[Rfam]
RNA sequence: UACGUCCACAAGGGGAGCCAUAUCAUUGGCUGAGAGUGAACGAAUUGAGUUCUGACCCUAUGAACCUGUUAGUUAAUGCUAGCGUAGGGAUGUGGUUUUGGAUUAUG
Numbered sequence: 001u002a003c004g005u006c007c008a009c010a011a012g013g014g015g016a017g018c019c020a021u022a023u024c025a026u027u028g029g030c031u032g033a034g035a036g037u038g039a040a041c042g043a044a045u046u047g048a049g050u051u052c053u054g055a056c057c058c059u060a061u062g063a064a065c066c067u068g069u070u071a072g073u074u075a076a077u078g079c080u081a082g083c084g085u086a087g088g089g090a091u092g093u094g095g096u097u098u099u100g101g102a103u104u105a106u107g
Stems, first nucleotide, its partner, number of pairs: 006095005011059004016053001017030004038052004065088004069082004
A member of the RNA family "TPP riboswitch aptamer (THI element)" from Bacillus sp. V5-8f, 107 nucleotides long. Rfam's curators write: Vitamin B(1) in its active form thiamin pyrophosphate (TPP) is an essential coenzyme that is synthesised by coupling of pyrimidine and thiazole moieties in bacteria. Pairs were carried over by alignment from the consensus structure, which is taken from published work. The organism belongs to Bacillus, within Bacteria.